[Rfam]
RNA sequence: GCGAGGUGCCCUCUCGAACCGGCGGAAUAGAAGCGUCAGAACUCCUAUCCUUCCAGCUCAGAGGGCACUUUCUAUCUCCGGGGUACCACCGCCCCGACACUCAUCGGUGGAUCGAG
Numbered sequence: 001g002c003g004a005g006g007u008g009c010c011c012u013c014u015c016g017a018a019c020c021g022g023c024g025g026a027a028u029a030g031a032a033g034c035g036u037c038a039g040a041a042c043u044c045c046u047a048u049c050c051u052u053c054c055a056g057c058u059c060a061g062a063g064g065g066c067a068c069u070u071u072c073u074a075u076c077u078c079c080g081g082g083g084u085a086c087c088a089c090c091g092c093c094c095c096g097a098c099a100c101u102c103a104u105c106g107g108u109g110g111a112u113c114g115a116g
Stems, first nucleotide, its partner, number of pairs: 003071011016059002019056001021054002025050001027048002030045001032043002098114001099112001101110003

Shown here is a 116-nucleotide RNA sequence from Micromonospora olivasterospora, a member of the family "Actinobacteria sRNA Ms_IGR-7". The organism belongs to Micromonospora, within Bacteria. By type it is a small RNA.